[Rfam]
RNA sequence: UGGUCCAUCGGGACCUCGGAUACCUGCUAGUUUAG
Numbered sequence: 001u002g003g004u005c006c007a008u009c010g011g012g013a014c015c016u017c018g019g020a021u022a023c024c025u026g027c028u029a030g031u032u033u034a035g
Stems, first nucleotide, its partner, number of pairs: 003014004017026003
Notes
XIST RNA A repeat: a 35-nucleotide sequence. By type it is a small RNA. The literature on the family includes a 2011 paper in RNA by Duszczyk et al., "The Xist RNA A-repeat comprises a novel AUCG tetraloop fold and a platform for multimerization".